RNA sequence: GUCAACUACCCCGCCCUAAAGGACGGAGCUUGUCAAACUAGGUUGACCAGACUCAGAUGCUCGCAAGAGCAGCUACGCUGACCAGAGGUCGUUAAGACUUACCCGUGGAUGCUUCCUGAGUCCACUGCUCUAAAAGGUUAGAAUUACGCUGGGGAAAGGUAAAGCCCCGAAAGUUUUAACCGCUACUAGCCAUAGUAGGAGCCGCUGGUAAGCUUUGUCGAAGGGAGAUGGC
Numbered sequence: 001g002u003c004a005a006c007u008a009c010c011c012c013g014c015c016c017u018a019a020a021g022g023a024c025g026g027a028g029c030u031u032g033u034c035a036a037a038c039u040a041g042g043u044u045g046a047c048c049a050g051a052c053u054c055a056g057a058u059g060c061u062c063g064c065a066a067g068a069g070c071a072g073c074u075a076c077g078c079u080g081a082c083c084a085g086a087g088g089u090c091g092u093u094a095a096g097a098c099u100u101a102c103c104c105g106u107g108g109a110u111g112c113u114u115c116c117u118g119a120g121u122c123c124a125c126u127g128c129u130c131u132a133a134a135a136g137g138u139u140a141g142a143a144u145u146a147c148g149c150u151g152g153g154g155a156a157a158g159g160u161a162a163a164g165c166c167c168c169g170a171a172a173g174u175u176u177u178a179a180c181c182g183c184u185a186c187u188a189g190c191c192a193u194a195g196u197a198g199g200a201g202c203c204g205c206u207g208g209u210a211a212g213c214u215u216u217g218u219c220g221a222a223g224g225g226a227g228a229u230g231g232c
Base pairs, nucleotide, nucleotide: 001047002046003045004044005043006042007041010028012025013024015022016021031036050219051218052217055074056073058071059070060069061068077213078212079211081209082208083207084206085205087203099133100132103127105125106124107123108122109121110120113227114226115225116224117223136181137180138179139178140177141176142175143174144173145172150169151168152167153166154165